Overview:
Shown here is a 353-nucleotide RNA sequence from Hanstruepera neustonica, a member of the family "Bacterial RNase P class A". Ribonuclease P (RNase P) is a ubiquitous endoribonuclease, found in archaea, bacteria and eukarya as well as chloroplasts and mitochondria. The family's consensus secondary structure is taken from published work.

[Rfam]
RNA sequence: UAAGUAAAUCGCCUUAUCGCUGUUACGUUUUGGCGUAAUGGAGGAAAGUCCGAACACCGUAGUGCAGUCAUAGUGGUUAACGACCACCAGCCGUGAGGUUAGGAAAAGUGCAACAGAAAGCAAGUACAGGUUAAGCUGUAGUGAAAUCAGGUAAACUCUAUGAGGUGCAAUGUCAUGUAUACCAACGUUUGAGUGCGGCACGCGCGAUUGUUGGAGGGUAGGCAGCUAGAGUGUAUUGGUAACAAUGCAUCCAGAUAAAUGAUAAGGAUUUUCUUUUUUUAAUUGUUCUAAUUUUUUAGAAUUCUUUUCAAAAAAGAAAAGUACAGAAUUCGGCUUAUAGAUUUGCUUAAGCA
Numbered sequence: 001u002a003a004g005u006a007a008a009u010c011g012c013c014u015u016a017u018c019g020c021u022g023u024u025a026c027g028u029u030u031u032g033g034c035g036u037a038a039u040g041g042a043g044g045a046a047a048g049u050c051c052g053a054a055c056a057c058c059g060u061a062g063u064g065c066a067g068u069c070a071u072a073g074u075g076g077u078u079a080a081c082g083a084c085c086a087c088c089a090g091c092c093g094u095g096a097g098g099u100u101a102g103g104a105a106a107a108g109u110g111c112a113a114c115a116g117a118a119a120g121c122a123a124g125u126a127c128a129g130g131u132u133a134a135g136c137u138g139u140a141g142u143g144a145a146a147u148c149a150g151g152u153a154a155a156c157u158c159u160a161u162g163a164g165g166u167g168c169a170a171u172g173u174c175a176u177g178u179a180u181a182c183c184a185a186c187g188u189u190u191g192a193g194u195g196c197g198g199c200a201c202g203c204g205c206g207a208u209u210g211u212u213g214g215a216g217g218g219u220a221g222g223c224a225g226c227u228a229g230a231g232u233g234u235a236u237u238g239g240u241a242a243c244a245a246u247g248c249a250u251c252c253a254g255a256u257a258a259a260u261g262a263u264a265a266g267g268a269u270u271u272u273c274u275u276u277u278u279u280u281a282a283u284u285g286u287u288c289u290a291a292u293u294u295u296u297u298a299g300a301a302u303u304c305u306u307u308u309c310a311a312a313a314a315a316g317a318a319a320a321g322u323a324c325a326g327a328a329u330u331c332g333g334c335u336u337a338u339a340g341a342u343u344u345g346c347u348u349a350a351g352c353a
Stems, first nucleotide, its partner, number of pairs: 001349010011338001012267007020041009046336003050333005055167004062201004068163005073087005088102001089100004103158002108156002110152002125140005171224004182214005193205004231250008